RNA: Hepatitis C virus (HCV) cis-acting replication element (CRE)
RNA sequence: CCACUUGCAGGCGCUGGCCGGCUCGAUCUUUCGAGCUGGUUCAGCGUUUGCGCCGGCGAGGCGGACGUGGAUCACAGCACGCCCAGAGCCCAUCCUCGCCCAUUACUCCUGUGCCUACUCCUACUUGCCGUAGGGGUAGGCAUUUUCCUCCUACCCGCUCGGUAAGCGGGUA
Numbered sequence: 001c002c003a004c005u006u007g008c009a010g011g012c013g014c015u016g017g018c019c020g021g022c023u024c025g026a027u028c029u030u031u032c033g034a035g036c037u038g039g040u041u042c043a044g045c046g047u048u049u050g051c052g053c054c055g056g057c058g059a060g061g062c063g064g065a066c067g068u069g070g071a072u073c074a075c076a077g078c079a080c081g082c083c084c085a086g087a088g089c090c091c092a093u094c095c096u097c098g099c100c101c102a103u104u105a106c107u108c109c110u111g112u113g114c115c116u117a118c119u120c121c122u123a124c125u126u127g128c129c130g131u132a133g134g135g136g137u138a139g140g141c142a143u144u145u146u147c148c149u150c151c152u153a154c155c156c157g158c159u160c161g162g163u164a165a166g167c168g169g170g171u172a
Base pairs, nucleotide, nucleotide: 009048010047016041017040018039019038020037021036022035023034024033025032026031055100056099057098058097059096060095061094063084064083066081067080112142113141114140115139116138117137118136119135120134121133122132123131124130152172153171154170155169156168157167159165